Shown here is a 79-nucleotide RNA sequence from Centropus unirufus, a member of the family "Small nucleolar RNA SNORD74". Gene Ontology terms of the family: RNA processing and nucleolus. Lineage of the source: Eukaryota > Dipnotetrapodomorpha > Tetrapoda > Sauropsida > Centropus.
RNA sequence: GUGCCUGCAUGUGAUGAAAAUUUGUGUUGGUAGGGACACCUGAGUGUGUGAUGAAUGCCAACGUUUCUGAGCUGGGCAC
Numbered sequence: 001g002u003g004c005c006u007g008c009a010u011g012u013g014a015u016g017a018a019a020a021u022u023u024g025u026g027u028u029g030g031u032a033g034g035g036a037c038a039c040c041u042g043a044g045u046g047u048g049u050g051a052u053g054a055a056u057g058c059c060a061a062c063g064u065u066u067c068u069g070a071g072c073u074g075g076g077c078a079c
Stems, first nucleotide, its partner, number of pairs: 001079005
Dot-bracket structure: (((((.....................................................................)))))